Rfam assigns this 126-nucleotide RNA from Bucco capensis to the family "Small nucleolar RNA ACA64". The base pairs follow the family's consensus structure, which was predicted with WAR. Rfam links the family to the GO terms RNA processing and nucleolus. The family has 30 seed sequences and 9,537 matches in Rfam 15.1.
[Rfam]
Nucleotides: 126
Stems, first nucleotide, its partner, number of pairs: 006051001008049001010046001013042002021034002066119001068117005078107005086099003
Number, partner (000 for none) and nucleotide at each position: 001000a002000c003000a004000g005000u006051c007000u008049g009000a010046a011000a012000a013042u014041a015000a016000c017000u018000u019000c020000u021034g022033u023000g024000u025000c026000u027000u028000c029000u030000g031000u032000g033022g034021c035000c036000c037000c038000u039000g040000g041014u042013g043000c044000g045000a046010u047000a048000a049008c050000u051006g052000u053000g054000c055000c056000a057000a058000c059000a060000a061000c062000a063000g064000a065000g066119g067000g068117a069116g070115c071114a072113u073000g074000a075000a076000a077000c078107u079106c080105a081104u082103u083000g084000c085000c086099c087098a088097c089000a090000g091000g092000a093000a094000a095000g096000u097088g098087u099086g100000g101000g102000g103082a104081g105080u106079g107078a108000u109000a110000c111000c112000c113072g114071u115070g116069u117068u118000c119066c120000u121000a122000u123000a124000a125000u126000c